[Rfam]
RNA: GlmZ RNA activator of glmS mRNA
RNA sequence: GCAGUGGCUCAUUCACCUGGUUACGACAGCCCUGCGAAAGCGGUCAAGCGCUUCAUAACAACCCGAAUGACGCACAAUACGGUGCCUGCCGUCCACCAAACCGAUACAGUCCACUUUGUGGCUCUAUCAAGCUUCGGACGCAACGUUGAGUUAGGCACCACCUAAUUUUCUGUGAUGACGGAUGUCCUCACAGCGUGAAUGGCAGAUUCUUUGAAUCUGCCAUUUUUCG
Number, nucleotide and partner (000 for none) at each position: 001g075002c000003a000004g000005u000006g000007g073008c072009u070010c069011a068012u067013u066014c065015a000016c000017c000018u057019g056020g000021u000022u000023a000024c000025g000026a000027c050028a000029g000030c000031c000032c000033u000034g000035c000036g000037a000038a000039a000040g000041c000042g000043g000044u000045c000046a000047a000048g000049c000050g027051c000052u000053u000054c000055a000056u019057a018058a000059c000060a000061a000062c000063c000064c000065g014066a013067a012068u011069g010070a009071c000072g008073c007074a000075c001076a000077a000078u000079a000080c000081g159082g158083u157084g156085c155086c154087u153088g000089c000090c000091g139092u138093c137094c136095a000096c000097c000098a000099a000100a000101c000102c000103g128104a127105u126106a125107c000108a000109g000110u000111c000112c000113a000114c000115u000116u000117u000118g000119u000120g000121g000122c000123u000124c000125u106126a105127u104128c103129a000130a000131g000132c000133u000134u000135c000136g094137g093138a092139c091140g000141c000142a000143a000144c000145g000146u000147u000148g000149a000150g000151u000152u000153a087154g086155g085156c084157a083158c082159c081160a000161c000162c000163u000164a000165a000166u000167u000168u000169u000170c000171u000172g000173u000174g000175a000176u000177g186178a185179c184180g000181g000182a000183u000184g179185u178186c177187c000188u000189c000190a000191c000192a000193g000194c000195g000196u000197g000198a224199a223200u222201g221202g220203c219204a218205g217206a216207u215208u214209c000210u000211u000212u000213g000214a208215a207216u206217c205218u204219g203220c202221c201222a200223u199224u198225u000226u000227u000228c000229g000